[Rfam]
RNA sequence: AGUAAUAUAGUGUACUAUCUCGCUUCUAAUGCACAUAGGAGUAUAAGCUAAGGUAGACAGAUAUGUUACUAAUCCACGUGGUAGAUGCACAGUUAGGUUCGCUGUGAGUGCACAUCUUAGUAGCAACCAACUAAAGCAAACAUAAGGAAUAUAGCUAUACCUCGACAGGCUUAAUGAGGUGUUUGACAGUAUGAUACUAACUGAACAAUAAGUAUCA
Numbered sequence: 001a002g003u004a005a006u007a008u009a010g011u012g013u014a015c016u017a018u019c020u021c022g023c024u025u026c027u028a029a030u031g032c033a034c035a036u037a038g039g040a041g042u043a044u045a046a047g048c049u050a051a052g053g054u055a056g057a058c059a060g061a062u063a064u065g066u067u068a069c070u071a072a073u074c075c076a077c078g079u080g081g082u083a084g085a086u087g088c089a090c091a092g093u094u095a096g097g098u099u100c101g102c103u104g105u106g107a108g109u110g111c112a113c114a115u116c117u118u119a120g121u122a123g124c125a126a127c128c129a130a131c132u133a134a135a136g137c138a139a140a141c142a143u144a145a146g147g148a149a150u151a152u153a154g155c156u157a158u159a160c161c162u163c164g165a166c167a168g169g170c171u172u173a174a175u176g177a178g179g180u181g182u183u184u185g186a187c188a189g190u191a192u193g194a195u196a197c198u199a200a201c202u203g204a205a206c207a208a209u210a211a212g213u214a215u216c217a
Base pairs, nucleotide, nucleotide: 001070002069003068004067005066006065007064008063009062011060015056016055023041024040025039026038027037083117084116085115086114088106089105090104091103092102093101131146132145137185138184139183140182141181159180160179161178162177163176192217193216194215195214196213197212198211
This 217-nucleotide RNA sequence from Buorbuivirus hominis belongs to the Rfam family "RAGATH-7 RNA". The literature on the family includes a 2015 paper in Nat Chem Biol by Weinberg et al., "New classes of self-cleaving ribozymes revealed by comparative genomics analysis". It scores 160 bits against the family's covariance model.